[Rfam]
Rfam assigns this 135-nucleotide RNA from Proteus myxofaciens to the family "Molybdenum/Tungsten riboswitch aptamer (Moco RNA motif)". The family has 160 seed sequences and 1,248 matches in Rfam 15.1. Taxonomically the source falls in Proteus myxofaciens (Bacteria, Pseudomonadati, Pseudomonadota, Proteus). The match comes from Rfam's covariance-model search (95 bits). The base pairs follow the family's consensus structure, which is taken from published work.

RNA sequence: AGGUUAAUUUAACUCCUAGCCUUAGCGUCUAAGUCGAUUGAUAUGAUGUUCUGGCCGUGACUAAAACGUCACCAGGGUGCAAGGUAGAAAUGCCCGCAUCUCCCGAAUUUGGAAAGGUGUUACUAUGCAACAACU
Number, nucleotide and partner (000 for none) at each position: 001a000002g000003g000004u000005u000006a126007a000008u000009u000010u000011a121012a120013c119014u000015c117016c116017u000018a000019g055020c054021c053022u000023u000024a050025g049026c048027g047028u046029c045030u000031a000032a000033g042034u041035c040036g000037a000038u000039u000040g035041a034042u033043a000044u000045g029046a028047u027048g026049u025050u024051c000052u000053g021054g020055c019056c000057g072058u071059g070060a069061c068062u000063a000064a000065a000066a000067c000068g061069u060070c059071a058072c057073c000074a000075g101076g100077g099078u098079g097080c096081a000082a000083g094084g093085u092086a091087g000088a000089a000090a000091u086092g085093c084094c083095c000096g080097c079098a078099u077100c076101u075102c112103c111104c000105g000106a000107a000108u000109u000110u000111g103112g102113a000114a000115a000116g016117g015118u000119g013120u012121u011122a000123c000124u000125a000126u006127g000128c000129a000130a000131c000132a000133a000134c000135u000